Nucleotides: 083
Base pairs, nucleotide, nucleotide: 001022002021003020004019005018006017052073053072054071055070056069057068058067059066
Number, partner (000 for none) and nucleotide at each position: 001022a002021g003020a004019g005018g006017g007000u008000u009000g010000a011000u012000u013000c014000g015000u016000c017006c018005c019004c020003u021002c022001u023000c024000g025000c026000u027000g028000c029000g030000g031000u032000u033000g034000u035000c036000g037000u038000u039000a040000u041000a042000g043000c044000u045000c046000c047000g048000u049000a050000c051000a052073a053072u054071g055070u056069c057068a058067g059066c060000u061000a062000a063000c064000c065000a066059g067058c068057u069056g070055g071054c072053a073052u074000a075000u076000g077000g078000c079000g080000g081000a082000g083000c